[Rfam]
RNA sequence: UGGCUGUGAUGACAACAAGAUUACUUCUUCAUACCUUAAUUUCUGUUAAGGACCAAACCUGAUGACUUUAUUUGUGCGUGUCUGAGCCGG
Numbered sequence: 001u002g003g004c005u006g007u008g009a010u011g012a013c014a015a016c017a018a019g020a021u022u023a024c025u026u027c028u029u030c031a032u033a034c035c036u037u038a039a040u041u042u043c044u045g046u047u048a049a050g051g052a053c054c055a056a057a058c059c060u061g062a063u064g065a066c067u068u069u070a071u072u073u074g075u076g077c078g079u080g081u082c083u084g085a086g087c088c089g090g
Stems, first nucleotide, its partner, number of pairs: 001089004
The record is a 90-nucleotide RNA from Aegilops tauschii, which matches "small nucleolar RNA snoR126" in Rfam. The base pairs follow the family's consensus structure, which was predicted with RNAalifold. The organism belongs to Aegilops tauschii, within Eukaryota. Its family is annotated with nucleolus and RNA processing in the Gene Ontology. A search with the family's covariance model found it, with a score of 46 bits. The literature on the family includes a 2009 paper in Nucleic Acids Res by Chen and Wu, "Mining small RNA sequencing data: a new approach to identify small nucleolar RNAs in Arabidopsis".